[Rfam]
RNA sequence: AGCUUUGCGCAGUGGCAGUAUCAUAGCCAAUGAGGUUUAUCUGAGGCGCGAUUAUUGCUAGUUGAAAAUUAUUUGUAUUAAGACAAUUCCUCUAAUUUUCUCUACCAGAUAAAAUUUCAUUAGACUACUUUUCAAUAACUAGAUAUAAG
Numbered sequence: 001a002g003c004u005u006u007g008c009g010c011a012g013u014g015g016c017a018g019u020a021u022c023a024u025a026g027c028c029a030a031u032g033a034g035g036u037u038u039a040u041c042u043g044a045g046g047c048g049c050g051a052u053u054a055u056u057g058c059u060a061g062u063u064g065a066a067a068a069u070u071a072u073u074u075g076u077a078u079u080a081a082g083a084c085a086a087u088u089c090c091u092c093u094a095a096u097u098u099u100c101u102c103u104a105c106c107a108g109a110u111a112a113a114a115u116u117u118c119a120u121u122a123g124a125c126u127a128c129u130u131u132u133c134a135a136u137a138a139c140u141a142g143a144u145a146u147a148a149g
Stems, first nucleotide, its partner, number of pairs: 020052003024048001026047003034042002088124002091119001094116006139149002
The record is a 149-nucleotide RNA from Tupaia belangeri, which matches "U4 spliceosomal RNA" in Rfam.
Gene Ontology terms of the family: spliceosomal tri-snRNP complex assembly and U4 snRNP.
By type it is a spliceosomal small nuclear RNA.